[Rfam]
RNA sequence: AAAGAAUAUUUACUCCGAAGCCUGUACUGCCUAAACAAGACGCAUGGCAGCAGGACAGACUAUCCACGAUAGUCCAGGUGGAAGCGGAAACGCUUUCGCCCCCCGUAUUUGGAAAGGAGCCUCAGACCCACGUUU
Dot-bracket structure: ...(........((((....((((..(((((....(.....)...)))))))))....(((((.....)))))...((((((((((....)))))))))).((.......))...))))........).......
The family of this 135-nucleotide RNA from an Anaerolineales bacterium is "Molybdenum/Tungsten riboswitch aptamer (Moco RNA motif)". Taxonomically the source falls in Anaerolineales (Bacteria, Bacillati, Chloroflexota, Anaerolineae). Pairs were carried over by alignment from the consensus structure, which is taken from published work.